[Rfam]
The record is a 69-nucleotide RNA from Anolis carolinensis, which matches "Small nucleolar RNA SNORD30" in Rfam. By type it is a C/D-box small nucleolar RNA. Rfam 15.1 lists 367 matches to the family in 268 species. Clan: SNORD30 clan. A reference for the family is Tycowski et al. (1996), "A mammalian gene with introns instead of exons generating stable RNA products", Nature. Lineage of the source: Eukaryota > Metazoa > Chordata > Gnathostomata > Anolis.
RNA sequence: UUUCAUGAUGAAUUUGCUUUGGAAUCUCGUUCGGCUGAAUUUCGCUGUUGAGAAGCAAAUCUGAGUCUU
Numbered sequence: 001u002u003u004c005a006u007g008a009u010g011a012a013u014u015u016g017c018u019u020u021g022g023a024a025u026c027u028c029g030u031u032c033g034g035c036u037g038a039a040u041u042u043c044g045c046u047g048u049u050g051a052g053a054a055g056c057a058a059a060u061c062u063g064a065g066u067c068u069u
Stems, first nucleotide, its partner, number of pairs: 025053005032047004